[Rfam]
RNA sequence: AGAUCUCGCCUGAAAGGGCGACGGUGCAAGCCGGAGCGGGAAGUCAGCAGAGGUCGUAGUAGCCGCUCUGGGUGAAGGGC
Numbered sequence: 001a002g003a004u005c006u007c008g009c010c011u012g013a014a015a016g017g018g019c020g021a022c023g024g025u026g027c028a029a030g031c032c033g034g035a036g037c038g039g040g041a042a043g044u045c046a047g048c049a050g051a052g053g054u055c056g057u058a059g060u061a062g063c064c065g066c067u068c069u070g071g072g073u074g075a076a077g078g079g080c
Stems, first nucleotide, its partner, number of pairs: 002027001004023001006021006044051002053080003062073003

A member of the RNA family "Group II catalytic intron D1-D4-1" from Sodalis glossinidius, 80 nucleotides long. Pairs were carried over by alignment from the consensus structure. Rfam describes the family as follows. Group II introns are found in rRNA, tRNA and mRNA of organelles in fungi, plants and protists, and also in mRNA in bacteria. The literature on the family includes a 2001 paper in Trends Genet by Bonen and Vogel, "The ins and outs of group II introns".